Rfam assigns this 58-nucleotide RNA from Drosophila kikkawai to the family "Drosophila rox2 ncRNA". The family's RNA type in Rfam is cis-regulatory element. The source organism's lineage runs through Eukaryota, Metazoa, Mandibulata, Drosophilidae and Sophophora. The base pairs follow the family's consensus structure, which is taken from published work.
RNA sequence: AUAAGGCAUGUAAAAUGUUGCAAAAUACUCAACAUAAGUAACGUUUUACGCGCCUUAA
Numbered sequence: 001a002u003a004a005g006g007c008a009u010g011u012a013a014a015a016u017g018u019u020g021c022a023a024a025a026u027a028c029u030c031a032a033c034a035u036a037a038g039u040a041a042c043g044u045u046u047u048a049c050g051c052g053c054c055u056u057a058a
Base pairs, nucleotide, nucleotide: 003056004055005054007052009050010049011048012047013046014045015044016043017042018041019040020039021038